[Rfam]
RNA sequence: CUGCUCCUCCGGGCCCGGUCUUCUCCGUGUGUCCUGACGUGCCCAUACGAGCAGGAGAAGUGGAACUGGCUUGGGCGUGUCCUGUCUGAGUGGCCACAGGCCACCGUGGUUUCCAGUGCCACG
Numbered sequence: 001c002u003g004c005u006c007c008u009c010c011g012g013g014c015c016c017g018g019u020c021u022u023c024u025c026c027g028u029g030u031g032u033c034c035u036g037a038c039g040u041g042c043c044c045a046u047a048c049g050a051g052c053a054g055g056a057g058a059a060g061u062g063g064a065a066c067u068g069g070c071u072u073g074g075g076c077g078u079g080u081c082c083u084g085u086c087u088g089a090g091u092g093g094c095c096a097c098a099g100g101c102c103a104c105c106g107u108g109g110u111u112u113c114c115a116g117u118g119c120c121a122c123g
Stems, first nucleotide, its partner, number of pairs: 003052004008047001012043003018038003026031001063119001065117005071109003077104003081100003084095001086093002

The record is a 123-nucleotide sequence from Galemys pyrenaicus, which matches "Small Cajal body specific RNA 23" in Rfam. The source organism's lineage runs through Eukaryota, Eumetazoa, Craniata, Tetrapoda and Galemys. By type it is a small Cajal body RNA. scaRNAs are a specific class of small nuclear RNAs which localise to the Cajal bodies and guide the modification of RNA polymerase II transcribed spliceosomal RNAs U1, U2, U4, U5 and U12. ACA11 belongs to the H/ACA box class of guide RNAs as it has the predicted hairpin-hinge-hairpin-tail structure,the conserved H/ACA-box motifs and is found associated with GAR1. H/ACA snRNAs are predicted to guide the modification of uridines to pseudouridines in substrate RNAs however, no target RNA has been identified for scaRNA ACA11. Rfam links the family to the GO terms nucleolus, Cajal body and RNA processing. A search with the family's covariance model found it, with a score of 76 bits. The literature on the family includes a 2002 paper in EMBO J by Darzacq et al., "Cajal body-specific small nuclear RNAs: a novel class of 2'-O-methylation and pseudouridylation guide RNAs".